[Rfam]
RNA: SAH (S-adenosyl-L-homocysteine) riboswitch aptamer
Organism: Denitromonas iodatirespirans
RNA sequence: CUUGCUGAGGAGCGCUGCGACCCGUGGGUAGAGUUUCCGGGGCCAGGCUCAGCAACGAACAACGGCGCUCGCAAACC
Numbered sequence: 001c002u003u004g005c006u007g008a009g010g011a012g013c014g015c016u017g018c019g020a021c022c023c024g025u026g027g028g029u030a031g032a033g034u035u036u037c038c039g040g041g042g043c044c045a046g047g048c049u050c051a052g053c054a055a056c057g058a059a060c061a062a063c064g065g066c067g068c069u070c071g072c073a074a075a076c077c
Stems, first nucleotide, its partner, number of pairs: 002055007021042003026037003